[Rfam]
RNA: FMN riboswitch aptamer (RFN element)
Organism: Anaerorhabdus furcosa
RNA sequence: AUAAAACUUCAGGGCAGGGUGUAAUUCCCGACCGGCGGUAAACCCCGCGCGCCAAUGAUUGGCAUGAACUGGUGAAAUUCCAGUGGCGACAGUAAAGUCUGGAUGAAAGAAAGUUUUCU
Numbered sequence: 001a002u003a004a005a006a007c008u009u010c011a012g013g014g015c016a017g018g019g020u021g022u023a024a025u026u027c028c029c030g031a032c033c034g035g036c037g038g039u040a041a042a043c044c045c046c047g048c049g050c051g052c053c054a055a056u057g058a059u060u061g062g063c064a065u066g067a068a069c070u071g072g073u074g075a076a077a078u079u080c081c082a083g084u085g086g087c088g089a090c091a092g093u094a095a096a097g098u099c100u101g102g103a104u105g106a107a108a109g110a111a112a113g114u115u116u117u118c119u
Base pairs, nucleotide, nucleotide: 003117004116005115006114007113008112009110010109017029018028019027031098032097033088034087035048036047037046038045043086044085053062068084069083070082071081072080090101091100092099